[Rfam]
RNA sequence: GUAUGAAAUGAUGGCAUACCAUCUUUCGGGACUGACUAUAAUGGAGAGACUUUUCUCACUUUACUGAUCAUAC
Numbered sequence: 001g002u003a004u005g006a007a008a009u010g011a012u013g014g015c016a017u018a019c020c021a022u023c024u025u026u027c028g029g030g031a032c033u034g035a036c037u038a039u040a041a042u043g044g045a046g047a048g049a050c051u052u053u054u055c056u057c058a059c060u061u062u063a064c065u066g067a068u069c070a071u072a073c
Base pairs, nucleotide, nucleotide: 001073002072003071004070005069006068
The family of this 73-nucleotide sequence from Pangasianodon hypophthalmus is "Small nucleolar RNA SNORD2". Taxonomically the source falls in Pangasianodon (Eukaryota, Metazoa, Deuterostomia, Euteleostomi). The family has 17 seed sequences and 1,116 matches in Rfam 15.1.